[Rfam]
RNA sequence: CGCUGAAACUCUGGAGAGAGGUGAAGACUGUCGCGGUCGACACCCACCGAUGGGGCAAAUCUCUCAGGUAUCGAGGACAGAGGGUGAAAC
Dot-bracket structure: .....(..(((((......((((.................)))).(((((..(((.....))))).)))........)))))..).....

Glycine riboswitch aptamer: a 90-nucleotide RNA sequence from Dechloromonas sp. For this family Rfam cites "A glycine-dependent riboswitch that uses cooperative binding to control gene expression" (Mandal et al., Science, 2004). The source organism's lineage runs through Bacteria, Pseudomonadota, Rhodocyclales, Azonexaceae and Dechloromonas.